[Rfam]
RNA: UnaL2 LINE 3' element
Organism: Hucho hucho
RNA sequence: UAAGUGCAUGACUGUAAGUCGCUUUGGAUAAAAGCGGCUGCUAAAUGGUAUAUA
Numbered sequence: 001u002a003a004g005u006g007c008a009u010g011a012c013u014g015u016a017a018g019u020c021g022c023u024u025u026g027g028a029u030a031a032a033a034g035c036g037g038c039u040g041c042u043a044a045a046u047g048g049u050a051u052a053u054a
Base pairs, nucleotide, nucleotide: 013043014041015040016039020036021035022034023033024032025031